[Rfam]
Notes
Rfam assigns this 63-nucleotide RNA from Peromyscus maniculatus to the family "Gag/pol translational readthrough site". Rfam 15.1 lists 3,368 matches to the family in 94 species. The family's RNA type in Rfam is cis-regulatory element. Its family is annotated with viral translational readthrough in the Gene Ontology.

Nucleotides: 063
Stems, first nucleotide, its partner, number of pairs: 008041003012036004016031004022061003025057003
Number, partner (000 for none) and nucleotide at each position: 001000u002000a003000g004000g005000g006000a007000g008041g009040u010039c011000a012036a013035g014034g015033c016031c017030a018029g019028g020000a021000g022061u023060c024059c025057c026056c027055c028019c029018c030017u031016g032000a033015g034014c035013c036012u037000a038000g039010g040009a041008u042000a043000a044000c045000u046000c047000u048000c049000a050000a051000g052000a053000u054000c055027g056026g057025g058000a059024g060023g061022g062000c063000a